[Rfam]
RNA: Bacillaceae-1 RNA
Organism: Virgibacillus necropolis
RNA sequence: AAUUAAGGACGUUCGACUAAGAGCGCCACGUCCUGUGGCAACGUCGAACUACCCUACAUCCU
Numbered sequence: 001a002a003u004u005a006a007g008g009a010c011g012u013u014c015g016a017c018u019a020a021g022a023g024c025g026c027c028a029c030g031u032c033c034u035g036u037g038g039c040a041a042c043g044u045c046g047a048a049c050u051a052c053c054c055u056a057c058a059u060c061c062u
Base pairs, nucleotide, nucleotide: 011049012048013047014046015045016044017043025039026038027037028036029035